Description: Shown here is a 148-nucleotide RNA from Streptomyces roseolilacinus, a member of the family "c-di-AMP riboswitch aptamer (ydaO/yuaA leader)". NCBI's taxonomy places the organism under Bacteria, Bacillati, Actinomycetota, Actinomycetes, Streptomyces.
RNA sequence: CACACAUUCACGCUCGGCAGGAGCGGGGGAACCAGGUAAGUCGCCGUCCCGGAAUCCGGGGCGGCUAGGGGUGAAGUCGCGGGCGACCGCGGCCGGACAUCUCCCGUCCGAACCCGACAGCUCACCUCGCAGGCGUCGGAGAGGAACG
Numbered sequence: 001c002a003c004a005c006a007u008u009c010a011c012g013c014u015c016g017g018c019a020g021g022a023g024c025g026g027g028g029g030a031a032c033c034a035g036g037u038a039a040g041u042c043g044c045c046g047u048c049c050c051g052g053a054a055u056c057c058g059g060g061g062c063g064g065c066u067a068g069g070g071g072u073g074a075a076g077u078c079g080c081g082g083g084c085g086a087c088c089g090c091g092g093c094c095g096g097a098c099a100u101c102u103c104c105c106g107u108c109c110g111a112a113c114c115c116g117a118c119a120g121c122u123c124a125c126c127u128c129g130c131a132g133g134c135g136u137c138g139g140a141g142a143g144g145a146a147c148g
Stems, first nucleotide, its partner, number of pairs: 001020001023130006033068001069115003077092004095109004